Shown here is a 146-nucleotide sequence from Dissostichus mawsoni, a member of the family "U1 spliceosomal RNA". About the family: U1 is a small nuclear RNA (snRNA) component of the spliceosome (involved in pre-mRNA splicing). By type it is a spliceosomal small nuclear RNA. The base pairs follow the family's consensus structure, which is taken from published work. The literature on the family includes a 1994 paper in Nature by Oubridge et al., "Crystal structure at 1.92 A resolution of the RNA-binding domain of the U1A spliceosomal protein complexed with an RNA hairpin".

Nucleotides: 146
Base pairs, nucleotide, nucleotide: 012104013103014102015101016048017047018046019045020044023042024041025040027038049072050071051070052069054068057064074099075098076097077095078094081091082090120145122143124141125140128137129136130135
Number, partner (000 for none) and nucleotide at each position: 001000a002000u003000a004000c005000u006000a007000a008000c009000u010000u011000g012104g013103c014102a015101g016048g017047g018046g019045g020044g021000u022000g023042u024041c025040u026000a027038u028000g029000a030000a031000c032000a033000c034000u035000a036000g037000g038027g039000g040025g041024g042023a043000u044020c045019c046018c047017c048016u049072a050071c051070g052069g053000c054068g055000a056000c057064g058000g059000c060000u061000g062000c063000g064057c065000u066000g067000a068054c069052c070051c071050g072049u073000a074099c075098g076097a077095a078094u079000c080000c081091c082090u083000c084000a085000a086000a087000u088000g089000u090082a091081g092000c093000a094078a095077u096000c097076u098075c099074g100000a101015c102014u103013g104012c105000a106000u107000a108000a109000u110000u111000u112000g113000u114000g115000g116000u117000a118000g119000u120145g121000c122143g123000a124141g125140a126000c127000u128137g129136c130135g131000u132000u133000c134000g135130c136129g137128c138000u139000c140125u141124c142000c143122c144000c145120u146000g